Source information: The record is a 78-nucleotide sequence, which matches "CyVA-1 RNA" in Rfam. Pairs were carried over by alignment from the consensus structure, which is taken from published work. Rfam classes the family as a small RNA. The sequence is in the family's curated seed alignment. Cyanobacteria, Acidobacteria (1 example), Verrucomicrobia (1 example).

RNA sequence: GUGGUGGGGACAGGUUUUCGCCGUUUCCCUGUCCAUGGACUCGCCAAAGGAGAACGGCGUCAGGCGAGGUCACACCGC
Numbered sequence: 001g002u003g004g005u006g007g008g009g010a011c012a013g014g015u016u017u018u019c020g021c022c023g024u025u026u027c028c029c030u031g032u033c034c035a036u037g038g039a040c041u042c043g044c045c046a047a048a049g050g051a052g053a054a055c056g057g058c059g060u061c062a063g064g065c066g067a068g069g070u071c072a073c074a075c076c077g078c
Stems, first nucleotide, its partner, number of pairs: 001078006009033004038070001040068006